[Rfam]
The record is a 76-nucleotide RNA sequence from Rhinolophus ferrumequinum, which matches "let-7 microRNA precursor family" in Rfam. Gene Ontology terms of the family: RISC complex and miRNA-mediated post-transcriptional gene silencing. About the family: This family represents the microRNAs (miRNA) let-7 and mir-98. let-7 was identified from a study of developmental timing in C. elegans, and was later shown to be part of a much larger class of non-coding RNAs termed miRNAs. The source organism's lineage runs through Eukaryota, Craniata, Teleostomi, Euteleostomi and Rhinolophus. On this family, see Rougvie, Nat Rev Genet 2001: "Control of developmental timing in animals".

RNA sequence: CCAGGUUGAGGUAGUAGGUUGUAUAGUUCAGAAGUGCAUCAAGGGAGAUAACUGUACAGCCUCCUAGCUUUCCUUG
Numbered sequence: 001c002c003a004g005g006u007u008g009a010g011g012u013a014g015u016a017g018g019u020u021g022u023a024u025a026g027u028u029c030a031g032a033a034g035u036g037c038a039u040c041a042a043g044g045g046a047g048a049u050a051a052c053u054g055u056a057c058a059g060c061c062u063c064c065u066a067g068c069u070u071u072c073c074u075u076g
Stems, first nucleotide, its partner, number of pairs: 001076001003074003008070003012066003016062012032039001040047001